[Rfam]
RNA: mir-166 microRNA precursor family
Organism: Panicum miliaceum
RNA sequence: GUUAAGGGGGUUGUUGUCUGGUUCAAGGUCACAAGCAAGCAAACCCAUCUUGCUUAACAUGCAGUAUGCAUGGGUGUAUCGAUCUAUUGGUGAUCUCGGACCAGGCUUCAAUCCCUUUAAC
Numbered sequence: 001g002u003u004a005a006g007g008g009g010g011u012u013g014u015u016g017u018c019u020g021g022u023u024c025a026a027g028g029u030c031a032c033a034a035g036c037a038a039g040c041a042a043a044c045c046c047a048u049c050u051u052g053c054u055u056a057a058c059a060u061g062c063a064g065u066a067u068g069c070a071u072g073g074g075u076g077u078a079u080c081g082a083u084c085u086a087u088u089g090g091u092g093a094u095c096u097c098g099g100a101c102c103a104g105g106c107u108u109c110a111a112u113c114c115c116u117u118u119a120a121c
Stems, first nucleotide, its partner, number of pairs: 001121013016106006024098001026096006
Dot-bracket structure: (((((((((((((..((((((..(.((((((...........................................................)))))).)..))))))..)))))))))))))